[Rfam]
RNA: Small nucleolar RNA SNORA58
RNA sequence: GGGCAUACCCGUAGACCUUGCCUGACUCUGCUCGUGGCCAGGCAGGGGGGGCAGUGUAUGCAAGAGUAAUUUGGAGUUUGUCAGCUCUAGCCAGCUUAUUUAGUGGCUGCAUAAGUUGUAUUACUUCAACAUUA
Number, nucleotide and partner (000 for none) at each position: 001g000002g000003g061004c060005a059006u058007a057008c056009c000010c000011g000012u000013a000014g000015a000016c047017c046018u045019u044020g043021c042022c041023u040024g039025a000026c000027u000028c000029u000030g000031c000032u000033c000034g000035u000036g000037g000038c000039c024040a023041g022042g021043c020044a019045g018046g017047g016048g000049g000050g000051g000052c000053a000054g000055u000056g008057u007058a006059u005060g004061c003062a000063a000064g000065a000066g000067u000068a000069a000070u000071u000072u000073g127074g126075a125076g124077u000078u123079u120080g119081u118082c000083a000084g000085c000086u000087c000088u000089a000090g000091c000092c109093a108094g107095c106096u000097u000098a000099u000100u000101u000102a000103g000104u000105g000106g095107c094108u093109g092110c000111a000112u000113a000114a000115g000116u000117u000118g081119u080120a079121u000122u000123a078124c076125u075126u074127c073128a000129a000130c000131a000132u000133u000134a000